Shown here is a 391-nucleotide RNA from Escherichia coli, a member of the family "Enterobacterial sRNA STnc550". It is one of the family's seed sequences.
RNA sequence: UCCAUUUCACUCCAGACCCUAACUUCAGCUCCUGCAAAAUCGCAAGGUAAACGUUUGCCUUUACACACCUUACGCACAACAAAAGUGUUGCGGUACGCCGGAAAAACGACACGGAGCGUCAGGAAGGGGUCAAUGGCCAGUACGCAAAUAGUGUAAGCGUGGAAUUUUGGCCGAUCUUGACGAAAAGGGGAAGUGGUAAAAACACUUAUCAUUAUAAAUGACGGGAGAUUUUUUCAUCACAGUGUGUAAAAAUGCGUAAUAUCACUUUUUGUGUGGUAAUAAAAAAGGAGAAAACUUGAUGAGCACCGACCUUAAAUUUUCACUGGUAACAACGAUUAUCGUCCUCGGUUUGAUCGUAGCCGUGGGUUUGACUGCCGCGCUGCACUGAUUU
Numbered sequence: 001u002c003c004a005u006u007u008c009a010c011u012c013c014a015g016a017c018c019c020u021a022a023c024u025u026c027a028g029c030u031c032c033u034g035c036a037a038a039a040u041c042g043c044a045a046g047g048u049a050a051a052c053g054u055u056u057g058c059c060u061u062u063a064c065a066c067a068c069c070u071u072a073c074g075c076a077c078a079a080c081a082a083a084a085g086u087g088u089u090g091c092g093g094u095a096c097g098c099c100g101g102a103a104a105a106a107c108g109a110c111a112c113g114g115a116g117c118g119u120c121a122g123g124a125a126g127g128g129g130u131c132a133a134u135g136g137c138c139a140g141u142a143c144g145c146a147a148a149u150a151g152u153g154u155a156a157g158c159g160u161g162g163a164a165u166u167u168u169g170g171c172c173g174a175u176c177u178u179g180a181c182g183a184a185a186a187g188g189g190g191a192a193g194u195g196g197u198a199a200a201a202a203c204a205c206u207u208a209u210c211a212u213u214a215u216a217a218a219u220g221a222c223g224g225g226a227g228a229u230u231u232u233u234u235c236a237u238c239a240c241a242g243u244g245u246g247u248a249a250a251a252a253u254g255c256g257u258a259a260u261a262u263c264a265c266u267u268u269u270u271g272u273g274u275g276g277u278a279a280u281a282a283a284a285a286a287g288g289a290g291a292a293a294a295c296u297u298g299a300u301g302a303g304c305a306c307c308g309a310c311c312u313u314a315a316a317u318u319u320u321c322a323c324u325g326g327u328a329a330c331a332a333c334g335a336u337u338a339u340c341g342u343c344c345u346c347g348g349u350u351u352g353a354u355c356g357u358a359g360c361c362g363u364g365g366g367u368u369u370g371a372c373u374g375c376c377g378c379g380c381u382g383c384a385c386u387g388a389u390u391u
Base pairs, nucleotide, nucleotide: 015131016130017129018128019127020126023028030124031123032122033121034120036119042094043093045060046059047058048057049056050055077090078089079088080087098114099113100112143195144194145193149163171187175183176182266286268283270281271280272279
The source organism's lineage runs through Bacteria, Gammaproteobacteria, Enterobacterales, Escherichia and Escherichia coli. The base pairs follow the family's consensus structure, which was predicted with CMfinder.